Small nucleolar RNA R38: a 93-nucleotide sequence from Hordeum vulgare. On this family, see Bachellerie et al., Trends Biochem Sci 1995: "Antisense snoRNAs: a family of nucleolar RNAs with long complementarities to rRNA". Pairs were carried over by alignment from the consensus structure, which was predicted with PFOLD. Rfam describes the family as follows. snoR38 is a C/D box small nucleolar RNA conserved across yeast, human, Arabidopsis and rice. It is encoded in the intron of elongation factor-1 gamma in both pombe and cerevisiae. snoR38 guides the methylation of 2'-O-ribose sites in 28S rRNA. By type it is a C/D-box small nucleolar RNA.
[Rfam]
RNA sequence: GGGUGUGUAUGAUGAGAUCACAAGUAAAAAUACAGUUAUCCCUGUCUUACUUCCUUUGAAGGGUGCUGAGAAUACUUUGAAUCUGACACAAUG
Numbered sequence: 001g002g003g004u005g006u007g008u009a010u011g012a013u014g015a016g017a018u019c020a021c022a023a024g025u026a027a028a029a030a031u032a033c034a035g036u037u038a039u040c041c042c043u044g045u046c047u048u049a050c051u052u053c054c055u056u057u058g059a060a061g062g063g064u065g066c067u068g069a070g071a072a073u074a075c076u077u078u079g080a081a082u083c084u085g086a087c088a089c090a091a092u093g
Stems, first nucleotide, its partner, number of pairs: 002092001004090004